[Rfam]
Nucleotides: 072
Base pairs, nucleotide, nucleotide: 001071004068005067015058016057017056018055020053021052022051023050024049025048026047027046028045029044031042032041033040034039
Number, partner (000 for none) and nucleotide at each position: 001071g002000g003000g004068g005067g006000g007000u008000g009000u010000g011000a012000c013000c014000c015058c016057g017056u018055g019000c020053u021052c022051c023050c024049u025048g026047g027046g028045g029044g030000g031042u032041g033040u034039g035000a036000u037000g038000c039034c040033a041032u042031g043000c044029u045028c046027c047026c048025u049024g050023g051022g052021g053020g054000g055018u056017g057016u058015g059000a060000u061000c062000c063000c064000g065000c066000a067005c068004u069000a070000g071001c072000u